[Rfam]
RNA sequence: UAAUGUGUUGUGACGAUACAAAUUGUGGACUAGAGUUUCUCAUCUGAAAAUCUUCACCCAGAAUAUGAUUAUCAAAUCCUUGGCUGUCCGAGCACAUAG
Numbered sequence: 001u002a003a004u005g006u007g008u009u010g011u012g013a014c015g016a017u018a019c020a021a022a023u024u025g026u027g028g029a030c031u032a033g034a035g036u037u038u039c040u041c042a043u044c045u046g047a048a049a050a051u052c053u054u055c056a057c058c059c060a061g062a063a064u065a066u067g068a069u070u071a072u073c074a075a076a077u078c079c080u081u082g083g084c085u086g087u088c089c090g091a092g093c094a095c096a097u098a099g
Base pairs, nucleotide, nucleotide: 001099003097004096005095006094007093008092038068039067043063044061045060046059
The family of this 99-nucleotide sequence from Cicer arietinum is "Small nucleolar RNA Z157/R69/R10". The family is grouped with related families in Rfam's "SNORD52 clan". A search with the family's covariance model found it, with a score of 56 bits. Gene Ontology terms of the family: nucleolus and RNA processing. The family's RNA type in Rfam is C/D-box small nucleolar RNA. The base pairs follow the family's consensus structure, which was predicted with PFOLD.